[Rfam]
This 50-nucleotide RNA sequence from Neptunicoccus cionae belongs to the Rfam family "SAM/SAH riboswitch aptamer".
RNA sequence: CGAGUGUCACAACGGCUUCCUGACGUGGCAUUUUCUUUUAAACUGGAGCA
Numbered sequence: 001c002g003a004g005u006g007u008c009a010c011a012a013c014g015g016c017u018u019c020c021u022g023a024c025g026u027g028g029c030a031u032u033u034u035c036u037u038u039u040a041a042a043c044u045g046g047a048g049c050a
Base pairs, nucleotide, nucleotide: 004031005030006029007028008027009026010025013022014021015049016048017047019046020045
The family's consensus secondary structure is taken from published work.
On this family, see Weickhmann et al., Nucleic Acids Res 2019: "The structure of the SAM/SAH-binding riboswitch".